[Rfam]
The family of this 97-nucleotide RNA from Mediterraneibacter butyricigenes is "Purine riboswitch aptamer". Rfam's curators write: Riboswitches are metabolite binding domains within certain messenger RNAs that serve as precision sensors for their corresponding targets. A search with the family's covariance model found it, with a score of 60 bits. Gene Ontology term of the family: purine nucleobase biosynthetic process.
RNA sequence: AAAAAGUAUAUAAAGAAAACUUAUAUAGGUUCAUAAUCGGAUGAACGUCUCUACCAGUUGCCGGAAACAACUGACUAUAAGAUUUCUGAGAAAAUCC
Numbered sequence: 001a002a003a004a005a006g007u008a009u010a011u012a013a014a015g016a017a018a019a020c021u022u023a024u025a026u027a028g029g030u031u032c033a034u035a036a037u038c039g040g041a042u043g044a045a046c047g048u049c050u051c052u053a054c055c056a057g058u059u060g061c062c063g064g065a066a067a068c069a070a071c072u073g074a075c076u077a078u079a080a081g082a083u084u085u086c087u088g089a090g091a092a093a094a095u096c097c
Base pairs, nucleotide, nucleotide: 018083020081021080022079023078024077025076029046030045031044032043033042034041055073056072057071058070059069060068